RNA: Mammalian CPEB3 ribozyme
Organism: Crocodylus porosus
RNA sequence: UUGCAAGUUCAAGGCCACAGCAGAAGCAUUCACUGCGCGGCCUGUCAGAUUCUGGCGAUAUCUGCAAAUUCUGCU
Numbered sequence: 001u002u003g004c005a006a007g008u009u010c011a012a013g014g015c016c017a018c019a020g021c022a023g024a025a026g027c028a029u030u031c032a033c034u035g036c037g038c039g040g041c042c043u044g045u046c047a048g049a050u051u052c053u054g055g056c057g058a059u060a061u062c063u064g065c066a067a068a069u070u071c072u073g074c075u
Stems, first nucleotide, its partner, number of pairs: 013042004019075007026038002046064005051058002